RNA sequence: GUCAACUACCCCACCCUCAAGGGCGGAGCUUGCAAGAGCUAGGUUGACCAGACUCAGUGCCGUUACGGGCACUACGCUGAGAAGAGGUCGUUAAGACUUACCGUAGGAUGCUUCCUGAGUCUUACGCUCUAAAAGAUCAGAAUCACGCUGGGGAAAGGUAAAGCCCCGCCGGUUCUGACCGUCAUGGGUCACUGUGAGAGCCGCUGAUCAGCCUUGUCGAAGGGAGAUGGC
Numbered sequence: 001g002u003c004a005a006c007u008a009c010c011c012c013a014c015c016c017u018c019a020a021g022g023g024c025g026g027a028g029c030u031u032g033c034a035a036g037a038g039c040u041a042g043g044u045u046g047a048c049c050a051g052a053c054u055c056a057g058u059g060c061c062g063u064u065a066c067g068g069g070c071a072c073u074a075c076g077c078u079g080a081g082a083a084g085a086g087g088u089c090g091u092u093a094a095g096a097c098u099u100a101c102c103g104u105a106g107g108a109u110g111c112u113u114c115c116u117g118a119g120u121c122u123u124a125c126g127c128u129c130u131a132a133a134a135g136a137u138c139a140g141a142a143u144c145a146c147g148c149u150g151g152g153g154a155a156a157g158g159u160a161a162a163g164c165c166c167c168g169c170c171g172g173u174u175c176u177g178a179c180c181g182u183c184a185u186g187g188g189u190c191a192c193u194g195u196g197a198g199a200g201c202c203g204c205u206g207a208u209c210a211g212c213c214u215u216g217u218c219g220a221a222g223g224g225a226g227a228u229g230g231c
Stems, first nucleotide, its partner, number of pairs: 001048007010028001012025001015022002029038003051218003056073005076212005083205002086202001098132002102126008112226005135180001137178007146171001147169002150167004
This 231-nucleotide sequence from Thioploca ingrica belongs to the Rfam family "HNH endonuclease-associated RNA and ORF (HEARO) RNA". The family's RNA type in Rfam is non-coding RNA gene. A search with the family's covariance model found it, with a score of 90 bits. The family's consensus secondary structure is taken from published work.